[Rfam]
A member of the RNA family "Betaproteobacteria toxic small RNA" from Noviherbaspirillum denitrificans, 66 nucleotides long. For this family Rfam cites "A vast collection of microbial genes that are toxic to bacteria" (Kimelman et al., Genome Res, 2012). The base pairs follow the family's consensus structure, which was predicted with WAR. Rfam's curators write: Overexpression in amino aid rich medium attenuates growth, suggesting role in repressing amino acid intake and metabolism. Taxonomically the source falls in Noviherbaspirillum (Bacteria, Pseudomonadati, Pseudomonadota, Oxalobacteraceae).
RNA sequence: UGUCUCCUCCAACUCUUCUUGAAUUGGAUUUGGCCCGCAAACCGAAAGGACUGCGGGCCUUCUUUU
Number, nucleotide and partner (000 for none) at each position: 001u000002g000003u000004c000005u000006c000007c000008u028009c027010c026011a025012a024013c021014u000015c000016u000017u000018c000019u000020u000021g013022a000023a000024u012025u011026g010027g009028a008029u000030u000031u000032g059033g058034c057035c056036c055037g054038c053039a052040a000041a000042c000043c000044g000045a000046a000047a000048g000049g000050a000051c000052u039053g038054c037055g036056g035057g034058c033059c032060u000061u000062c000063u000064u000065u000066u000

A search with the family's covariance model found it, with a score of 55 bits.